[Rfam]
RNA: Bacterial RNase P class A
Organism: Tunturiibacter empetritectus
RNA sequence: GCAGGCGGCUGGAUGAUCGCUGCCGCCUUCACCCAAAAGGUGCUUGGCGGGGGAGGAAAGUCCGAACUCCGCAGGGCAGUGUGCCGGAUAACGUCCGGGACGGAGGCUUCAAGGCCUCUGGACGGCAAGUGCAACAGAGAACAUACCGCCCCGAAUCUGGUGACCUGCUUCGGCAGAUCCGCAAGCGGACCGGGGUAAGGGUGAAAAGGUGCGGUAAGAGCGCACCGCGCGGCCAGUAAUGGACGCGGCAGGGUAAACCCCACACGGAGCAAGACCAAAUAGGCAGGGAUCUCGUCGCUCCUCUUCAGGCGGCGAGAGCGUAUCGGCCCGAUGCGCCCAGGCGGAGAGACCCGAAAGGGAGCCGAAACUUGCGGGUAGGUUGCUAAAGCGCCGCAGUAAUGCGUCGCGUAGAGGAAUGAUCGUCUAAAACAGAAUUCGGCUUACGGGCCGUCUGCAAAC
Numbered sequence: 001g002c003a004g005g006c007g008g009c010u011g012g013a014u015g016a017u018c019g020c021u022g023c024c025g026c027c028u029u030c031a032c033c034c035a036a037a038a039g040g041u042g043c044u045u046g047g048c049g050g051g052g053g054a055g056g057a058a059a060g061u062c063c064g065a066a067c068u069c070c071g072c073a074g075g076g077c078a079g080u081g082u083g084c085c086g087g088a089u090a091a092c093g094u095c096c097g098g099g100a101c102g103g104a105g106g107c108u109u110c111a112a113g114g115c116c117u118c119u120g121g122a123c124g125g126c127a128a129g130u131g132c133a134a135c136a137g138a139g140a141a142c143a144u145a146c147c148g149c150c151c152c153g154a155a156u157c158u159g160g161u162g163a164c165c166u167g168c169u170u171c172g173g174c175a176g177a178u179c180c181g182c183a184a185g186c187g188g189a190c191c192g193g194g195g196u197a198a199g200g201g202u203g204a205a206a207a208g209g210u211g212c213g214g215u216a217a218g219a220g221c222g223c224a225c226c227g228c229g230c231g232g233c234c235a236g237u238a239a240u241g242g243a244c245g246c247g248g249c250a251g252g253g254u255a256a257a258c259c260c261c262a263c264a265c266g267g268a269g270c271a272a273g274a275c276c277a278a279a280u281a282g283g284c285a286g287g288g289a290u291c292u293c294g295u296c297g298c299u300c301c302u303c304u305u306c307a308g309g310c311g312g313c314g315a316g317a318g319c320g321u322a323u324c325g326g327c328c329c330g331a332u333g334c335g336c337c338c339a340g341g342c343g344g345a346g347a348g349a350c351c352c353g354a355a356a357g358g359g360a361g362c363c364g365a366a367a368c369u370u371g372c373g374g375g376u377a378g379g380u381u382g383c384u385a386a387a388g389c390g391c392c393g394c395a396g397u398a399a400u401g402c403g404u405c406g407c408g409u410a411g412a413g414g415a416a417u418g419a420u421c422g423u424c425u426a427a428a429a430c431a432g433a434a435u436u437c438g439g440c441u442u443a444c445g446g447g448c449c450g451u452c453u454g455c456a457a458a459c
Stems, first nucleotide, its partner, number of pairs: 001455010011444001012424007020053002023050005058442003062439005067269004079265005084098005099123001101120008124260002129258002131254002146200002148196006156188001208226006227249001228247004233242003273381004283372005388407003392403004